Rfam assigns this 37-nucleotide sequence from Flagellimonas nanhaiensis to the family "DUF805b RNA".

RNA sequence: GGAGGGGAAGCCGAAAACCUCAAAAAUAGAGUAGGCU
Numbered sequence: 001g002g003a004g005g006g007g008a009a010g011c012c013g014a015a016a017a018c019c020u021c022a023a024a025a026a027u028a029g030a031g032u033a034g035g036c037u
Base pairs, nucleotide, nucleotide: 002021003020004019005018010036011035012034
By type it is a cis-regulatory element. Taxonomically the source falls in Flagellimonas (Bacteria, Flavobacteriia, Flavobacteriales, Flavobacteriaceae).